The record is a 397-nucleotide RNA from Draconibacterium aestuarii, which matches "transfer-messenger RNA" in Rfam.
Rfam links the family to the GO term RNA catabolic process.
The family's consensus secondary structure is taken from published work.
[Rfam]
RNA sequence: GGGGCUGACUGGUUUUGACAGCGGGUAGAAGAGAUAAGUAAGCAUGUCGGGCUUUGAUCGUUGGCCCGUAAAUCUUAAUGAUCAAAACCAUAAUUGGCGAAAACAAUUACGCUCUUGCUGCGUAACCGAAUCAAGUAGGUUACACUUUAUCCCGGUACUAGGUACUGGGACGAGACAUCGCCCGGAUGCUAUUGCUUUGAAGCGGUCCGGUUCGGCGGUGCAAGUAAAUCGAAGCUAGUUGAAAUGAGGCUCUGGCAUUUCGGCGAAAUAAAAGAGAUAAGGUAGUAGUUGGUGGCUUUGAUCCGGGUGCUAUUCGAAAAUUAAAUCAGAGAUAAACAUGUAGAAAGCUUAUAGCUUCCUCGUUUGGACGCGGGUUCGACUCCCGCCAGCUCCACUU
Numbered sequence: 001g002g003g004g005c006u007g008a009c010u011g012g013u014u015u016u017g018a019c020a021g022c023g024g025g026u027a028g029a030a031g032a033g034a035u036a037a038g039u040a041a042g043c044a045u046g047u048c049g050g051g052c053u054u055u056g057a058u059c060g061u062u063g064g065c066c067c068g069u070a071a072a073u074c075u076u077a078a079u080g081a082u083c084a085a086a087a088c089c090a091u092a093a094u095u096g097g098c099g100a101a102a103a104c105a106a107u108u109a110c111g112c113u114c115u116u117g118c119u120g121c122g123u124a125a126c127c128g129a130a131u132c133a134a135g136u137a138g139g140u141u142a143c144a145c146u147u148u149a150u151c152c153c154g155g156u157a158c159u160a161g162g163u164a165c166u167g168g169g170a171c172g173a174g175a176c177a178u179c180g181c182c183c184g185g186a187u188g189c190u191a192u193u194g195c196u197u198u199g200a201a202g203c204g205g206u207c208c209g210g211u212u213c214g215g216c217g218g219u220g221c222a223a224g225u226a227a228a229u230c231g232a233a234g235c236u237a238g239u240u241g242a243a244a245u246g247a248g249g250c251u252c253u254g255g256c257a258u259u260u261c262g263g264c265g266a267a268a269u270a271a272a273a274g275a276g277a278u279a280a281g282g283u284a285g286u287a288g289u290u291g292g293u294g295g296c297u298u299u300g301a302u303c304c305g306g307g308u309g310c311u312a313u314u315c316g317a318a319a320a321u322u323a324a325a326u327c328a329g330a331g332a333u334a335a336a337c338a339u340g341u342a343g344a345a346a347g348c349u350u351a352u353a354g355c356u357u358c359c360u361c362g363u364u365u366g367g368a369c370g371c372g373g374g375u376u377c378g379a380c381u382c383c384c385g386c387c388a389g390c391u392c393c394a395c396u397u
Base pairs, nucleotide, nucleotide: 001393002392003391004390005389006388007387019366020365021363022362023361024360025359027357030356031355034352035351036350037349038348039347043340044339045338046337047336048068049067050066051065052064055084056083057082058081059080060079061078146173147172150169151168152167154165176220177219178218179217180216181215182210183209184208185207187204188203189202190201194235195234196233197232198231199230200229238264239263240262241261242260243259244258245257246256248278250276251275252274253273281314282313283312284311285310286309287308291303292302296331297330300326370386371385372384373383374382

It scores 164 bits against the family's covariance model. On this family, see Williams and Bartel, RNA 1996: "Phylogenetic analysis of tmRNA secondary structure". The source organism's lineage runs through Bacteria, Bacteroidia, Marinilabiliales, Prolixibacteraceae and Draconibacterium. About the family: Bacterial tmRNA, also known as 10Sa RNA or SsrA, is named for its dual tRNA and mRNA-like properties. Its role is to liberate the mRNA from a stalled ribosome.